[Rfam]
transfer-messenger RNA: a 369-nucleotide sequence from Psychrosphaera saromensis. Rfam's curators write: Bacterial tmRNA, also known as 10Sa RNA or SsrA, is named for its dual tRNA and mRNA-like properties. Its role is to liberate the mRNA from a stalled ribosome. Rfam classes the family as a non-coding RNA gene. Gene Ontology term of the family: RNA catabolic process. A reference for the family is Laslett et al. (2002), "BRUCE: a program for the detection of transfer-messenger RNA genes in nucleotide sequences", Nucleic Acids Res. Pairs were carried over by alignment from the consensus structure, which is taken from published work.
RNA sequence: GGGGCUGAUCUAGGAUUCGACAGGAUUGAUGAUACCGGAUGGAGCACGUCGAGGGGCGGUUUGCCUCGUAAAAAGCCGCAAAAAAAUAGUCGCAAACGACGAAAACUACGCACUAGCAGCUUAAUACCCUGCCAAGAGCUCUUUUGCCCUAGCUUCCGCUCGUAAGACGGGGAACAACAAAAGAUCAAAACCCAAACGAACUAGUGGCGCGGCUCCUGCCUGAGAGGCAACCCACGAAAUAUAAUUCAGGAUAGUCGAUAAGUGGCGUGUCUGUUCGCAGCUUAUUGGUGAAUUUAAAAACUGACUAAACGUGUAGCGCCAAAGGAUAAGCUUUUCUGGACGGGGGUUCGACUCCCCCCAGCUCCACCA
Numbered sequence: 001g002g003g004g005c006u007g008a009u010c011u012a013g014g015a016u017u018c019g020a021c022a023g024g025a026u027u028g029a030u031g032a033u034a035c036c037g038g039a040u041g042g043a044g045c046a047c048g049u050c051g052a053g054g055g056g057c058g059g060u061u062u063g064c065c066u067c068g069u070a071a072a073a074a075g076c077c078g079c080a081a082a083a084a085a086a087u088a089g090u091c092g093c094a095a096a097c098g099a100c101g102a103a104a105a106c107u108a109c110g111c112a113c114u115a116g117c118a119g120c121u122u123a124a125u126a127c128c129c130u131g132c133c134a135a136g137a138g139c140u141c142u143u144u145u146g147c148c149c150u151a152g153c154u155u156c157c158g159c160u161c162g163u164a165a166g167a168c169g170g171g172g173a174a175c176a177a178c179a180a181a182a183g184a185u186c187a188a189a190a191c192c193c194a195a196a197c198g199a200a201c202u203a204g205u206g207g208c209g210c211g212g213c214u215c216c217u218g219c220c221u222g223a224g225a226g227g228c229a230a231c232c233c234a235c236g237a238a239a240u241a242u243a244a245u246u247c248a249g250g251a252u253a254g255u256c257g258a259u260a261a262g263u264g265g266c267g268u269g270u271c272u273g274u275u276c277g278c279a280g281c282u283u284a285u286u287g288g289u290g291a292a293u294u295u296a297a298a299a300a301c302u303g304a305c306u307a308a309a310c311g312u313g314u315a316g317c318g319c320c321a322a323a324g325g326a327u328a329a330g331c332u333u334u335u336c337u338g339g340a341c342g343g344g345g346g347u348u349c350g351a352c353u354c355c356c357c358c359c360a361g362c363u364c365c366a367c368c369a
Stems, first nucleotide, its partner, number of pairs: 001365007021338005028331001030329001034327001036325001040321003044317001045313005050068005056079006113136002116132004140184006147172004153166003158201001160199004207233001209231001212228001219250004254289010265278003269305003273301003342358005